Rfam assigns this 62-nucleotide RNA sequence from Microcebus murinus to the family "U7 small nuclear RNA". The family's consensus secondary structure was predicted with PFOLD.
[Rfam]
RNA sequence: GAGUGUUACAGCUUUUUUAGAAUUUGUCUAGUAGGUUUUCCGGUCCUUAUCGGAAGACUCCC
Numbered sequence: 001g002a003g004u005g006u007u008a009c010a011g012c013u014u015u016u017u018u019a020g021a022a023u024u025u026g027u028c029u030a031g032u033a034g035g036u037u038u039u040c041c042g043g044u045c046c047u048u049a050u051c052g053g054a055a056g057a058c059u060c061c062c
Stems, first nucleotide, its partner, number of pairs: 034059011
The organism belongs to Microcebus, within Eukaryota.
Rfam 15.1 lists 10,439 matches to the family in 569 species.